Plastid-psbA-1 3UTR RNA: a 112-nucleotide RNA from Papaver nudicaule. The organism belongs to Papaver, within Eukaryota. It scores 69 bits against the family's covariance model. The family is grouped with related families in Rfam's "Plastid-psbA 3UTR RNA clan".
[Rfam]
Nucleotides: 112
Base pairs, nucleotide, nucleotide: 008023009022010021011020012019059112060111061110062109063108064107065106066105067104068103069102070101071100073098074097075096077094078093079092080091081090
Number, partner (000 for none) and nucleotide at each position: 001000a002000g003000u004000a005000a006000a007000u008023a009022c010021u011020u012019u013000c014000a015000a016000u017000a018000a019012a020011a021010g022009g023008u024000a025000c026000a027000u028000u029000u030000u031000u032000u033000a034000u035000g036000g037000a038000a039000a040000a041000a042000c043000a044000a045000u046000a047000c048000u049000a050000a051000a052000a053000c054000g055000a056000a057000a058000u059112g060111a061110a062109g063108g064107a065106g066105c067104a068103a069102u070101a071100c072000c073098g074097a075096c076000c077094c078093u079092c080091u081090u082000a083000u084000u085000u086000u087000a088000u089000c090081a091080a092079g093078a094077g095000g096075g097074u098073c099000g100071g101070u102069a103068u104067u105066g106065c107064u108063c109062c110061u111060u112059c